[Rfam]
RNA sequence: GAGUGUGUGGUAAAGUGCUUACAGUGCAGGUAGAGGUGAUACCCUGCCUACUGCAGUGUGGGCACUUCUCUCACACAUCC
Numbered sequence: 001g002a003g004u005g006u007g008u009g010g011u012a013a014a015g016u017g018c019u020u021a022c023a024g025u026g027c028a029g030g031u032a033g034a035g036g037u038g039a040u041a042c043c044c045u046g047c048c049u050a051c052u053g054c055a056g057u058g059u060g061g062g063c064a065c066u067u068c069u070c071u072c073a074c075a076c077a078u079c080c
Stems, first nucleotide, its partner, number of pairs: 004077004009072002013067011025055003029052005
The record is an 80-nucleotide sequence from Anguilla anguilla, which matches "mir-17 microRNA precursor family" in Rfam. The family has 234 seed sequences and 4,687 matches in Rfam 15.1. The match comes from Rfam's covariance-model search (64 bits). The family's consensus secondary structure was predicted with RNAalifold.